[Rfam]
RNA sequence: AACAUUCAACGCUGUCGGUGAGUUUGGGCAGUAGAGGUUAAACCACCGACCGUUGAGUGUACC
Number, nucleotide and partner (000 for none) at each position: 001a000002a000003c059004a058005u057006u056007c055008a054009a053010c052011g051012c000013u000014g050015u049016c048017g047018g046019u045020g044021a000022g043023u042024u041025u040026g000027g000028g000029c000030a000031g000032u000033a000034g000035a000036g000037g000038u000039u000040a025041a024042a023043c022044c020045a019046c018047c017048g016049a015050c014051c011052g010053u009054u008055g007056a006057g005058u004059g003060u000061a000062c000063c000
The family of this 63-nucleotide RNA from Ornithorhynchus anatinus is "mir-181 microRNA precursor family". Rfam 15.1 lists 3,490 matches to the family in 650 species. The source organism's lineage runs through Eukaryota, Chordata, Teleostomi, Ornithorhynchidae and Ornithorhynchus. The sequence is in the family's curated seed alignment.